The record is a 187-nucleotide RNA from Erinaceus europaeus, which matches "Small Cajal body specific RNA 16" in Rfam. Pairs were carried over by alignment from the consensus structure, which was predicted with RNAfold. For this family Rfam cites "Cajal body-specific small nuclear RNAs: a novel class of 2'-O-methylation and pseudouridylation guide RNAs" (Darzacq et al., EMBO J, 2002). The family has 37 seed sequences and 790 matches in Rfam 15.1. The sequence is in the family's curated seed alignment.
RNA sequence: AUGGUCUGGAGAAAGGCUCCUGUGUUGUUGGACCUGCCCAGAGUGGGUGCAGCCUUGUACCAGGCAGCCCGACCCUGACCUAGAGUAAGUGCCUGGGGACAAGUUCUCCCUGGGCUUGGAACUUGCAGUAACAGGUGUGAACAUUCUAGCAGUAGUUUGAUGAUCAUGUAUGAUACUGCAAACAGGG
Number, nucleotide and partner (000 for none) at each position: 001a000002u000003g080004g079005u078006c077007u000008g075009g074010a000011g000012a000013a000014a000015g069016g068017c067018u066019c064020c063021u062022g061023u000024g060025u059026u000027g053028u052029u051030g050031g000032a048033c047034c046035u000036g000037c000038c000039c000040a000041g000042a000043g000044u000045g000046g034047g033048u032049g000050c030051a029052g028053c027054c000055u000056u000057g000058u000059a025060c024061c022062a021063g020064g019065c000066a018067g017068c016069c015070c000071g000072a000073c000074c009075c008076u000077g006078a005079c004080c003081u000082a000083g000084a000085g000086u000087a000088a000089g000090u000091g000092c114093c113094u112095g000096g110097g109098g108099a107100c000101a000102a000103g000104u000105u000106c000107u099108c098109c097110c096111u000112g094113g093114g092115c000116u000117u000118g000119g000120a000121a000122c000123u181124u180125g179126c178127a177128g176129u175130a174131a000132c172133a171134g000135g000136u000137g000138u166139g165140a164141a000142c162143a161144u160145u159146c000147u000148a157149g156150c155151a000152g000153u000154a000155g150156u149157u148158u000159g145160a144161u143162g142163a000164u140165c139166a138167u000168g000169u000170a000171u133172g132173a000174u130175a129176c128177u127178g126179c125180a124181a123182a000183c000184a000185g000186g000187g000